[Rfam]
The record is a 129-nucleotide RNA sequence from Vagococcus humatus, which matches "Ribosomal protein L20 leader" in Rfam. About the family: This family is a putative r-protein leader autoregulatory structure found in B. subtilis and other low-GC Gram-positive bacteria. It is annotated as a cis-regulatory leader. The organism belongs to Vagococcus, within Bacteria. The base pairs follow the family's consensus structure, which was predicted with CMfinder. A search with the family's covariance model found it, with a score of 64 bits.
RNA sequence: AGAAUGAAGCAGAAGCACCCGCUUCUCGCCUUAGAUGACAUUUGUCUCUGGGCUUGAUAUUUUUUUCUAGAGAGUAAUCUCUAGUUAUUUGCGGGUUCUUUAUUAAAAAGAACUCUUUUUUUCUGCCUU
Number, nucleotide and partner (000 for none) at each position: 001a000002g000003a000004a000005u000006g000007a000008a000009g000010c000011a026012g025013a024014a023015g022016c021017a000018c000019c000020c000021g016022c015023u014024u013025c012026u011027c000028g053029c052030c051031u000032u000033a000034g000035a000036u000037g046038a045039c044040a000041u000042u000043u000044g039045u038046c037047u000048c000049u000050g000051g030052g029053c028054u000055u000056g000057a000058u000059a000060u000061u000062u000063u000064u000065u000066u000067c000068u000069a000070g000071a000072g000073a000074g000075u000076a000077a000078u000079c000080u000081c000082u000083a000084g000085u000086u000087a000088u000089u000090u000091g000092c000093g115094g114095g113096u112097u111098c110099u109100u108101u107102a000103u000104u000105a000106a000107a101108a100109a099110g098111a097112a096113c095114u094115c093116u000117u000118u000119u000120u000121u000122u000123c000124u000125g000126c000127c000128u000129u000